[Rfam]
RNA sequence: AAAAAAAUAAAGCUCCGAUUCAGUCUGACCUAAGGCUUAGAGCUAUGGCGGCUGAACGAUAGGGUGUAAAGGGAAACCUUUAUGCCUCCCGUCAGGAAAGGAGUGUAAACUUUUUAUAC
Dot-bracket structure: ..((.......(((((..(((((((...((...((((...))))..)).))))))).....(((((((((((....)))))))))))((.....))...))))).......))......